[Rfam]
RNA sequence: GCGACCUUACUUGAACAGGAUCUGUUCAUUAGGCUCGUACCUCUAUAUCCUUGAGUUCAAAGGAGAUAGGAAUCCAAGUCUGGUUGACGAACCAUGACUUUCUAACCAUAGCGUGAGUAAUAGCCUUGUAGUCCCUGUAUAGGCAGUGGAGGAUCGUCCUCAGUCAAUGUUGAAUGGCCUGAGAUGGUCACAGAGUAGUCUGACAGACU
Numbered sequence: 001g002c003g004a005c006c007u008u009a010c011u012u013g014a015a016c017a018g019g020a021u022c023u024g025u026u027c028a029u030u031a032g033g034c035u036c037g038u039a040c041c042u043c044u045a046u047a048u049c050c051u052u053g054a055g056u057u058c059a060a061a062g063g064a065g066a067u068a069g070g071a072a073u074c075c076a077a078g079u080c081u082g083g084u085u086g087a088c089g090a091a092c093c094a095u096g097a098c099u100u101u102c103u104a105a106c107c108a109u110a111g112c113g114u115g116a117g118u119a120a121u122a123g124c125c126u127u128g129u130a131g132u133c134c135c136u137g138u139a140u141a142g143g144c145a146g147u148g149g150a151g152g153a154u155c156g157u158c159c160u161c162a163g164u165c166a167a168u169g170u171u172g173a174a175u176g177g178c179c180u181g182a183g184a185u186g187g188u189c190a191c192a193g194a195g196u197a198g199u200c201u202g203a204c205a206g207a208c209u
Stems, first nucleotide, its partner, number of pairs: 001038002003035001005033003013027006043069004048064005078208005097196005103190001105188004111157003120147002123144004129137002159183005165177001167175002
Rfam assigns this 209-nucleotide RNA sequence from Jatropha curcas to the family "Plant small nucleolar RNA U3". Rfam classes the family as a C/D-box small nucleolar RNA. The literature on the family includes a 1997 paper in Nucleic Acids Res by Zwieb, "The uRNA database". The match comes from Rfam's covariance-model search (152 bits). From the family's description: Small nucleolar RNAs (snoRNAs) are involved in the processing and modification of rRNA in the nucleolus. There are two main classes of snoRNAs: the box C/D class, and the box H/ACA class. U3 snoRNA is a member of the box C/D class. Indeed, the box C/D element is a subset of the six short sequence elements found in all U3 snoRNAs, namely boxes A, A', B, C, C', and D. The U3 snoRNA secondary structure is characterised by a small 5' domain (with boxes A and A'), and a larger 3' domain (with boxes B, C, C', and D), the two domains being linked by a single-stranded hinge. Boxes B and C form the B/C motif, which appears to be exclusive to U3 snoRNAs, and boxes C' and D form the C'/D motif. The latter is functionally similar to the C/D motifs found in other snoRNAs. The 5' domain and the hinge region act as a pre-rRNA-binding domain. The 3' domain has conserved protein-binding sites. Both the box B/C and box C'/D motifs are sufficient for nuclear retention of U3 snoRNA. The box C'/D motif is also necessary for nucleolar localisation, stability and hyper-methylation of U3 snoRNA. Both box B/C and C'/D motifs are involved in specific protein interactions and are necessary for the rRNA processing functions of U3 snoRNA. The organism belongs to Jatropha, within Eukaryota. The family is grouped with related families in Rfam's "U3 clan".